The family of this 183-nucleotide sequence from Dipodomys ordii is "Small nucleolar RNA SNORA23". A reference for the family is Huttenhofer et al. (2001), "RNomics: an experimental approach that identifies 201 candidates for novel, small, non-messenger RNAs in mouse", EMBO J. Rfam 15.1 lists 1,092 matches to the family in 632 species. The base pairs follow the family's consensus structure, which was predicted with RNAalifold. It is annotated as an H/ACA-box small nucleolar RNA. The members of this family belong to the H/ACA class of snoRNAs which are thought to guide the sites of modification of uridines to pseudouridines. Lineage of the source: Eukaryota > Chordata > Mammalia > Eutheria > Dipodomys.
RNA sequence: ACUACAGUGUGUGCAUAGUUUCCAUCUGUGUCUGGUAGCACAGUCUGUCUGUGUUUUGCAUUCAGACCUUGCUAUUCACACAAAAUCGUGUAGCCAAAAAGCAACUUGGGAUCAUAGUACUGGUCUAGUGUUGUCUGUUUGGACACACCUACCACUGGCCAGCCUCCAAAUUCCCGCACACAG
Numbered sequence: 001a002c003u004a005c006a007g008u009g010u011g012u013g014c015a016u017a018g019u020u021u022c023c024a025u026c027u028g029u030g031u032c033u034g035g036u037a038g039c040a041c042a043g044u045c046u047g048u049c050u051g052u053g054u055u056u057u058g059c060a061u062u063c064a065g066a067c068c069u070u071g072c073u074a075u076u077c078a079c080a081c082a083a084a085a086u087c088g089u090g091u092a093g094c095c096a097a098a099a100a101g102c103a104a105c106u107u108g109g110g111a112u113c114a115u116a117g118u119a120c121u122g123g124u125c126u127a128g129u130g131u132u133g134u135c136u137g138u139u140u141g142g143a144c145a146c147a148c149c150u151a152c153c154a155c156u157g158g159c160c161a162g163c164c165u166c167c168a169a170a171u172u173c174c175c176g177c178a179c180a181c182a183g
Base pairs, nucleotide, nucleotide: 013091014090015089016088029082030081031080033078034077035076036074037073038072039071040070043067044066045065046064047063050060051059052058107176108175109174110173111172120162121161122160123159124158125157127156128155129154130153132147133146134145136143